[Rfam]
Nucleotides: 538
Base pairs, nucleotide, nucleotide: 009025010024011023012022013021027528028527029526030525032524033523034522035521036520037519039397040396041395042394043393044392045390046389047355052353053352054351056350057349058348061097062096063095066094067093069091070090073088076085078083104308105307106306113233114232115231116230117229118228119227120226123225124224128221129220130219131218132217133216134215136170138168139167145160146159147158148157149156150155176201177200178199180197182195184193185192186191206213207212234280235279236278241271242270243269246268247267248266249265250264251263252262253261283305284304285303286302287298288297289296290295310331311330312329313328314327333344334343335342336341361387363386364385365384369382370381371380372379373378400430401429402428403427410421411420412419413418435465436464437463438462439461440460444455472517473516474515475514476513483512484511485510486509487508493500494499
Number, partner (000 for none) and nucleotide at each position: 001000a002000a003000a004000c005000u006000g007000g008000a009025g010024a011023g012022u013021u014000u015000g016000a017000u018000u019000c020000u021013g022012g023011c024010u025009c026000a027528g028527a029526a030525c031000a032524a033523a034522c035521g036520c037519u038000g039397g040396c041395g042394g043393c044392g045390u046389g047355c048000c049000u050000a051000a052353u053352a054351c055000a056350u057349g058348c059000a060000a061097g062096u063095c064000g065000a066094a067093c068000g069091g070090g071000g072000a073088a074000a075000g076085c077000u078083u079000u080000c081000g082000g083078g084000u085076g086000a087000g088073u089000a090070c091069u092000a093067g094066u095063g096062g097061c098000g099000c100000a101000c102000g103000g104308g105307u106306g107000a108000g109000g110000a111000a112000c113233g114232c115231g116230u117229g118228g119227a120226u121000a122000a123225u124224c125000u126000g127000c128221c129220u130219u131218a132217g133216a134215g135000u136170g137000g138168g139167g140000g141000a142000u143000a144000a145160c146159u147158a148157g149156u150155c151000g152000a153000a154000a155150g156149a157148u158147u159146a160145g161000c162000u163000a164000a165000u166000a167139c168138c169000g170136c171000a172000u173000a174000a175000g176201a177200c178199c179000a180197c181000a182195g183000g184193a185192g186191c187000u188000g189000c190000g191186g192185c193184u194000c195182u196000a197180g198000g199178g200177g201176u202000c203000a204000a205000a206213g207212g208000u209000u210000u211000u212207u213206c214000g215134c216133u217132c218131u219130a220129a221128g222000a223000u224124g225123a226120g227119u228118c229117c230116g231115c232114g233113u234280a235279a236278g237000a238000u239000u240000a241271g242270c243269u244000a245000g246268u247267u248266g249265g250264u251263g252262a253261g254000g255000u256000a257000a258000c259000g260000g261253c262252u263251c264250a265249c266248c267247a268246a269243g270242g271241c272000g273000a274000c275000g276000a277000u278236c279235u280234u281000u282000a283305a284304c285303u286302g287298g288297u289296c290295u291000g292000a293000g294000a295290g296289g297288a298287u299000g300000a301000u302286c303285a304284g305283u306106c307105a308104c309000a310331c311330u312329g313328g314327a315000a316000c317000u318000g319000a320000g321000a322000c323000a324000c325000g326000g327314u328313c329312c330311a331310g332000a333344c334343u335342c336341c337000u338000a339000c340000g341336g342335g343334a344333g345000g346000c347000a348058g349057c350056a351054g352053u353052a354000g355047g356000g357000a358000a359000u360000a361387u362000u363386g364385c365384a366000c367000a368000a369382u370381g371380g372379a373378g374000g375000a376000a377000a378373c379372u380371c381370u382369g383000a384365u385364g386363c387361a388000g389046c390045g391000a392044c393043g394042c395041c396040g397039c398000g399000u400430g401429a402428g403427u404000g405000a406000u407000g408000a409000a410421g411420g412419c413418c414000u415000u416000c417000g418413g419412g420411u421410c422000g423000u424000a425000a426000a427403g428402c429401u430400c431000u432000g433000u434000c435465g436464c437463a438462g439461g440460g441000g442000a443000a444455u445000a446000a447000c448000a449000c450000a451000a452000u453000g454000a455444a456000u457000g458000u459000a460440c461439c462438c463437u464436g465435u466000a467000a468000g469000a470000a471000a472517g473516g474515a475514u476513c477000g478000g479000c480000u481000a482000a483512c484511u485510u486509c487508g488000u489000g490000c491000c492000a493500g494499c495000a496000g497000c498000c499494g500493c501000g502000g503000u504000a505000a506000g507000a508487c509486g510485a511484g512483g513476g514475a515474u516473c517472c518000u519037a520036g521035c522034g523033u524032u525030g526029u527028u528027c529000g530000g531000a532000a533000u534000u535000a536000u537000u538000g

Shown here is a 538-nucleotide part of an RNA from Bdellovibrio bacteriovorus, a member of the family "Bacterial small subunit ribosomal RNA".
Rfam links the family to the GO terms ribosome and structural constituent of ribosome.
It is one of the family's seed sequences.